Rfam assigns this 81-nucleotide sequence from Bittarella massiliensis to the family "S10-Clostridia ribosomal protein leader". On this family, see Eckert and Weinberg, BMC Microbiol 2020: "Discovery of 20 novel ribosomal leader candidates in bacteria and archaea". Lineage of the source: Bacteria > Clostridia > Eubacteriales > Oscillospiraceae > Bittarella (ex Durand et al. 2017). The match comes from Rfam's covariance-model search (54 bits). Rfam classes the family as a cis-regulatory leader.
[Rfam]
RNA sequence: GAUAUGCGUUGAAGCGGGAGGUUGCCACACAUCUGUGUGGGUUUUUCCGUGGAGUAUGUCCGAUUUUAAACCGGGCGACAG
Numbered sequence: 001g002a003u004a005u006g007c008g009u010u011g012a013a014g015c016g017g018g019a020g021g022u023u024g025c026c027a028c029a030c031a032u033c034u035g036u037g038u039g040g041g042u043u044u045u046u047c048c049g050u051g052g053a054g055u056a057u058g059u060c061c062g063a064u065u066u067u068a069a070a071c072c073g074g075g076c077g078a079c080a081g
Stems, first nucleotide, its partner, number of pairs: 014050003018047004025040005057080004064075003